Shown here is a 230-nucleotide RNA sequence from Paenibacillus popilliae, a member of the family "Group II catalytic intron D1-D4-6". From the family's description: Group II introns are found in rRNA, tRNA and mRNA of organelles in fungi, plants and protists, and also in mRNA in bacteria. The family has 174 seed sequences and 1,617 matches in Rfam 15.1. A search with the family's covariance model found it, with a score of 94 bits.
[Rfam]
RNA sequence: AGAGUCCCAUCGGGAUAAAGCCUAGCCAGCAGUCCUGUAGCUAGUUCUUGAAGGCUAUUGGGCAACGAAUAGCUUAAGCGUAGAACGGCAAAAUAGCGGGCCGAAAGCGAAAGCUGAAGGGACUGAGCCUCGAAAAUACGUGGAGACAGGCCGAUGUAGUUACACAUACAGAAGGGAAUAUCGGUUCGAGCAUUUAUGAGUUUGAGUCGGCACUCUCGGGUCUGAGAGCU
Dot-bracket structure: ...........(((((...((.[.[...)).))))).(.((..(.(((((((.((((((.(....).))))))))...)).))).).)).)................................((.(((.((...........(((..(.((..((((........))))...)).....(((((((((((.....].]))))))))))))..))))))))).)......